[Rfam]
RNA sequence: CCUCGAGGACGACGUGGACCUCGAGGACCUCGAGGACCUCGAGGACGACGAGGACGACCUCG
Numbered sequence: 001c002c003u004c005g006a007g008g009a010c011g012a013c014g015u016g017g018a019c020c021u022c023g024a025g026g027a028c029c030u031c032g033a034g035g036a037c038c039u040c041g042a043g044g045a046c047g048a049c050g051a052g053g054a055c056g057a058c059c060u061c062g
Stems, first nucleotide, its partner, number of pairs: 001035008049062005
RNA: Guanidine-II riboswitch aptamer (mini-ykkC)